[Rfam]
RNA sequence: UUCUUAUUGGAUGAUGACUCACGUGUCAUGUUCUGAUUGAUCAAUGAAAACAACAAUGCAUUUCAUUUUUCAUGGAGUUGACAUCUAAUUAGAACAUGACAAGUGACCGUCAUCAUUC
Numbered sequence: 001u002u003c004u005u006a007u008u009g010g011a012u013g014a015u016g017a018c019u020c021a022c023g024u025g026u027c028a029u030g031u032u033c034u035g036a037u038u039g040a041u042c043a044a045u046g047a048a049a050a051c052a053a054c055a056a057u058g059c060a061u062u063u064c065a066u067u068u069u070u071c072a073u074g075g076a077g078u079u080g081a082c083a084u085c086u087a088a089u090u091a092g093a094a095c096a097u098g099a100c101a102a103g104u105g106a107c108c109g110u111c112a113u114c115a116u117u118c
Base pairs, nucleotide, nucleotide: 020105021104024101027098028097029096031094032093033092034091036089037088038087